A member of the RNA family "SAH (S-adenosyl-L-homocysteine) riboswitch aptamer" from Dyella soli, 76 nucleotides long.
A search with the family's covariance model found it, with a score of 56 bits.
Lineage of the source: Bacteria > Pseudomonadota > Lysobacterales > Rhodanobacteraceae > Dyella.
RNA sequence: CCCGUCGAGGGGCGCUGCGACCGUGACGACACGGCCAGGCUCGACGUGGCACGUUCUUGAACGGCGCCCGGCUUUA
Numbered sequence: 001c002c003c004g005u006c007g008a009g010g011g012g013c014g015c016u017g018c019g020a021c022c023g024u025g026a027c028g029a030c031a032c033g034g035c036c037a038g039g040c041u042c043g044a045c046g047u048g049g050c051a052c053g054u055u056c057u058u059g060a061a062c063g064g065c066g067c068c069c070g071g072c073u074u075u076a
Stems, first nucleotide, its partner, number of pairs: 003046006021034005